[Rfam]
RNA sequence: UAGCUCUGGAGAACCAUGUCAAUCAAUCAUUCGUAGUUUAUUUUAUACCACAAUACAAAUGAUUGACAUGGUUCUCCAAA
Numbered sequence: 001u002a003g004c005u006c007u008g009g010a011g012a013a014c015c016a017u018g019u020c021a022a023u024c025a026a027u028c029a030u031u032c033g034u035a036g037u038u039u040a041u042u043u044u045a046u047a048c049c050a051c052a053a054u055a056c057a058a059a060u061g062a063u064u065g066a067c068a069u070g071g072u073u074c075u076c077c078a079a080a
Base pairs, nucleotide, nucleotide: 007078008077009076010075011074012073013072014071015070016069017068018067019066020065021064022063023062024061025060